Rfam assigns this 266-nucleotide RNA from Fidelibacterota bacterium PRS2 to the family "Bacterial large signal recognition particle RNA". Rfam links the family to the GO terms signal recognition particle, plasma membrane targeting and SRP-dependent cotranslational protein targeting to membrane, signal sequence recognition. It scores 152 bits against the family's covariance model. On this family, see Rosenblad et al., RNA Biol 2009: "Kinship in the SRP RNA family". Lineage of the source: Bacteria > Pseudomonadati > Fidelibacterota.
RNA sequence: CUGUGCUAGAUGGGGAGUUAGCGGUUCCCUGUAUCCUGAAACCCGCUUUAUGCAGGAUUGAAUACCGGUAGGAGGGUUUUGCUGAAUUUGAAAUGGUUUAUAAGUGGUGUUGAUGUUUUCAGCUUUACGCAAUAGACUUGUUUUUAAUCCCGUCAGAUCCGGAAGGAAGCAGCGGUAGAAAUAAUGUUUAUGUGCCGUAAAUUUCUGAAACUGAGCUGGCUGUAAAACAGGUCUUAUAAACAGAGAACACAACUACCGGUGCACAG
Dot-bracket structure: ((((((..(((((((((((...))))))))....((((.(..........).))))))).....(((((((..(.(((...(((..(.((...((.(((((..(((((......((.(((((.((((((((.(((((.((((((.....((((....(((....)))....))))..))))))..)))))))...))))))...)))))))...))).)).))))).)).....)).)..)))..))).)..))))))).))))))